[Rfam]
RNA sequence: AAUGCAUGAUGACAAAUUGUUUCGGCUCAAUGAUUGCCACUGAUUACUGGGAAAGAGAUCUGCUGAUGUU
Numbered sequence: 001a002a003u004g005c006a007u008g009a010u011g012a013c014a015a016a017u018u019g020u021u022u023c024g025g026c027u028c029a030a031u032g033a034u035u036g037c038c039a040c041u042g043a044u045u046a047c048u049g050g051g052a053a054a055g056a057g058a059u060c061u062g063c064u065g066a067u068g069u070u
Base pairs, nucleotide, nucleotide: 001070002069003068004067